[Rfam]
RNA sequence: AACUCUUGGGCAAUGUUUGUCAUCCAAAUCGUGUCAGGAUCGGGAGAUAGCAGCACUAAGGCUGUAUGAGCAUGUGCCCUUUUUUUGAGAAUUCAA
Numbered sequence: 001a002a003c004u005c006u007u008g009g010g011c012a013a014u015g016u017u018u019g020u021c022a023u024c025c026a027a028a029u030c031g032u033g034u035c036a037g038g039a040u041c042g043g044g045a046g047a048u049a050g051c052a053g054c055a056c057u058a059a060g061g062c063u064g065u066a067u068g069a070g071c072a073u074g075u076g077c078c079c080u081u082u083u084u085u086u087g088a089g090a091a092u093u094c095a096a
Stems, first nucleotide, its partner, number of pairs: 004090005009079002011074001013073006021064002024061002031056004039048003

The family of this 96-nucleotide RNA from Lactobacillus iners is "Bacterial small signal recognition particle RNA".
A search with the family's covariance model found it, with a score of 48 bits.
NCBI's taxonomy places the organism under Bacteria, Bacillota, Lactobacillales, Lactobacillaceae, Lactobacillus iners.
Rfam describes the family as follows. The signal recognition particle (SRP) is a universally conserved ribonucleoprotein involved in the co-translational targeting of proteins to membranes.
A reference for the family is Rosenblad et al. (2003), "SRPDB: Signal Recognition Particle Database", Nucleic Acids Res.